[Rfam]
RNA sequence: GCCUGGAUGCACUGUAAGUCACUUUGGAUAAAAGUGUCUGCUAAAUGCAUUUUA
Number, nucleotide and partner (000 for none) at each position: 001g000002c000003c000004u000005g000006g000007a000008u000009g000010c000011a000012c000013u043014g041015u040016a039017a000018g000019u000020c036021a035022c034023u033024u032025u031026g000027g000028a000029u000030a000031a025032a024033a023034g022035u021036g020037u000038c000039u016040g015041c014042u000043a013044a000045a000046u000047g000048c000049a000050u000051u000052u000053u000054a000